Notes
Selenocysteine transfer RNA: an 86-nucleotide sequence from Guillardia theta. Its family is annotated with triplet codon-amino acid adaptor activity in the Gene Ontology. Lineage of the source: Eukaryota > Cryptophyceae > Pyrenomonadales > Guillardia > Guillardia theta.

RNA sequence: GCCCCGAUGAUCCUGGCUGGCGCUGGGGCUGGACUUCAAAUCCAGUGAGGGUUGACGCCCUAGAGGUUCGAUUCCUCCUUCGAGGC
Numbered sequence: 001g002c003c004c005c006g007a008u009g010a011u012c013c014u015g016g017c018u019g020g021c022g023c024u025g026g027g028g029c030u031g032g033a034c035u036u037c038a039a040a041u042c043c044a045g046u047g048a049g050g051g052u053u054g055a056c057g058c059c060c061u062a063g064a065g066g067u068u069c070g071a072u073u074c075c076u077c078c079u080u081c082g083a084g085g086c
Stems, first nucleotide, its partner, number of pairs: 001086003005082003009078001012027006028046006048061005063077004